[Rfam]
Nucleotides: 225
Base pairs, nucleotide, nucleotide: 013211014210015209016208017207018206019205020204023201024200025199026198027197028196029195036188059166060165062163063162064161068157069156071154072153073152074151
Number, partner (000 for none) and nucleotide at each position: 001000u002000g003000c004000c005000u006000c007000a008000u009000g010000a011000a012000g013211g014210a015209g016208c017207u018206c019205c020204c021000a022000u023201c024200g025199g026198u027197c028196c029195a030000a031000u032000c033000c034000a035000g036188g037000g038000u039000a040000a041000c042000u043000g044000c045000g046000g047000g048000g049000a050000a051000u052000g053000g054000u055000g056000u057000c058000g059166c060165u061000g062163c063162u064161g065000g066000u067000u068157c069156a070000u071154g072153c073152a074151c075000u076000a077000g078000c079000u080000u081000c082000u083000c084000u085000c086000g087000u088000u089000c090000g091000g092000u093000g094000c095000c096000a097000g098000a099000a100000a101000c102000c103000u104000u105000c106000g107000g108000g109000g110000g111000u112000a113000c114000u115000c116000a117000u118000a119000u120000u121000u122000c123000a124000a125000a126000a127000a128000u129000u130000g131000u132000c133000c134000g135000a136000a137000c138000g139000g140000g141000u142000g143000u144000u145000g146000a147000g148000c149000a150000u151074g152073u153072g154071c155000u156069u157068g158000a159000a160000g161064c162063a163062g164000g165060a166059g167000c168000c169000a170000c171000c172000u173000c174000c175000u176000u177000c178000a179000c180000c181000u182000g183000u184000c185000u186000c187000a188036c189000c190000u191000g192000u193000c194000u195029u196028g197027g198026a199025c200024u201023g202000a203000a204020g205019g206018g207017a208016g209015c210014u211013c212000c213000u214000u215000c216000g217000c218000a219000a220000a221000c222000u223000u224000c225000g